Notes: A member of the RNA family "tRNA" from Lachnospiraceae bacterium RM5, 73 nucleotides long. NCBI's taxonomy places the organism under Bacteria, Bacillati, Bacillota, Lachnospirales, Lachnospiraceae.

RNA sequence: GCUACUAUGGCUCAGGAGGUAGAGCGUCGCCUUGGUAAGGCGGAGGUCACGGGUUCGAGUCCCGUUAGUAGCU
Number, nucleotide and partner (000 for none) at each position: 001g072002c071003u070004a069005c068006u067007a066008u000009g000010g025011c024012u023013c022014a000015g000016g000017a000018g000019g000020u000021a000022g013023a012024g011025c010026g000027u043028c042029g041030c040031c039032u000033u000034g000035g000036u000037a000038a000039g031040g030041c029042g028043g027044a000045g000046g000047u000048c000049a065050c064051g063052g062053g061054u000055u000056c000057g000058a000059g000060u000061c053062c052063c051064g050065u049066u007067a006068g005069u004070a003071g002072c001073u000
From the family's description: Transfer RNA (tRNA) molecules are approximately 80 nucleotides in length. Their secondary structure includes four short double-helical elements and three loops (D, anti-codon, and T loops). Further hydrogen bonds mediate the characteristic L-shaped molecular structure. tRNAs have two regions of fundamental functional importance: the anti-codon, which is responsible for specific mRNA codon recognition, and the 3' end, to which the tRNAs corresponding amino acid is attached (by aminoacyl-tRNA synthetases). tRNAs cope with the degeneracy of the genetic code in two manners: having more than one tRNA (with a specific anti-codon) for a particular amino acid; and 'wobble' base-pairing, i.e. permitting non-standard base-pairing at the 3rd anti-codon position. It scores 69 bits against the family's covariance model.